This 75-nucleotide RNA from Python bivittatus belongs to the Rfam family "mir-193 microRNA precursor family". A search with the family's covariance model found it, with a score of 74 bits. For this family Rfam cites "MicroRNA transcriptome in the newborn mouse ovaries determined by massive parallel sequencing" (Ahn et al., Mol Hum Reprod, 2010).
RNA sequence: AUCCGGGGCCGGGGCUUUGGGGGCGAGAUGAGCUUGCCCGGUAUCCAACUGGCCCACAAAGUCCCGCUUCUGGGG
Numbered sequence: 001a002u003c004c005g006g007g008g009c010c011g012g013g014g015c016u017u018u019g020g021g022g023g024c025g026a027g028a029u030g031a032g033c034u035u036g037c038c039c040g041g042u043a044u045c046c047a048a049c050u051g052g053c054c055c056a057c058a059a060a061g062u063c064c065c066g067c068u069u070c071u072g073g074g075g
Stems, first nucleotide, its partner, number of pairs: 003073006010066004015061005021055004026050002029047002